RNA sequence: CGCGUGCGUGAUGUCGGAACUCGACCGGCCACUGAAGCAAUGAUUUUUUCAUAGACGAACACUGCUCGGUAAUCGGGGUUGAAGCAAUGUGCAAGCUGCUGUGGAUUGCCCCG
Numbered sequence: 001c002g003c004g005u006g007c008g009u010g011a012u013g014u015c016g017g018a019a020c021u022c023g024a025c026c027g028g029c030c031a032c033u034g035a036a037g038c039a040a041u042g043a044u045u046u047u048u049u050c051a052u053a054g055a056c057g058a059a060c061a062c063u064g065c066u067c068g069g070u071a072a073u074c075g076g077g078g079u080u081g082a083a084g085c086a087a088u089g090u091g092c093a094a095g096c097u098g099c100u101g102u103g104g105a106u107u108g109c110c111c112c113g
Base pairs, nucleotide, nucleotide: 013029014028015027016026017025074113075112076111077110078109085108086107088105090103091102092101093100
This 113-nucleotide RNA sequence from Rhizobium sp. Root149 belongs to the Rfam family "ALIL pseudoknot". The family's consensus secondary structure is taken from published work. The literature on the family includes a 2008 paper in J Biol Chem by Mazauric et al., "Apical loop-internal loop RNA pseudoknots: a new type of stimulator of -1 translational frameshifting in bacteria". Taxonomically the source falls in Rhizobium (Bacteria, Pseudomonadati, Pseudomonadota, Alphaproteobacteria). The family's RNA type in Rfam is cis-regulatory element.